[Rfam]
RNA sequence: GUGGGAAACUGCCACUACCUCGCAAUCACGUGAUUACUUUCAGCUUUGAUAAAUUAUCGAAGAAUUGGAAAUUCAAUUAAUACUGCAUGUGAUGUGACGUAGUGGAACAUUCCUGAUG
Numbered sequence: 001g002u003g004g005g006a007a008a009c010u011g012c013c014a015c016u017a018c019c020u021c022g023c024a025a026u027c028a029c030g031u032g033a034u035u036a037c038u039u040u041c042a043g044c045u046u047u048g049a050u051a052a053a054u055u056a057u058c059g060a061a062g063a064a065u066u067g068g069a070a071a072u073u074c075a076a077u078u079a080a081u082a083c084u085g086c087a088u089g090u091g092a093u094g095u096g097a098c099g100u101a102g103u104g105g106a107a108c109a110u111u112c113c114u115g116a117u118g
Stems, first nucleotide, its partner, number of pairs: 002115006012105007020097004026092004031087002